[Rfam]
RNA: Small nucleolar RNA snR60/Z15/Z230/Z193/J17
RNA sequence: AGGGUCAAGUGAUGAUUAAUAAUGCAUAGUUCAAAUGAUCUCCAUGAUUACUAUUCAGUAGCACAGUCUUUCGCUCCUAUCUGAUGGCCCU
Numbered sequence: 001a002g003g004g005u006c007a008a009g010u011g012a013u014g015a016u017u018a019a020u021a022a023u024g025c026a027u028a029g030u031u032c033a034a035a036u037g038a039u040c041u042c043c044a045u046g047a048u049u050a051c052u053a054u055u056c057a058g059u060a061g062c063a064c065a066g067u068c069u070u071u072c073g074c075u076c077c078u079a080u081c082u083g084a085u086g087g088c089c090c091u
Stems, first nucleotide, its partner, number of pairs: 003089005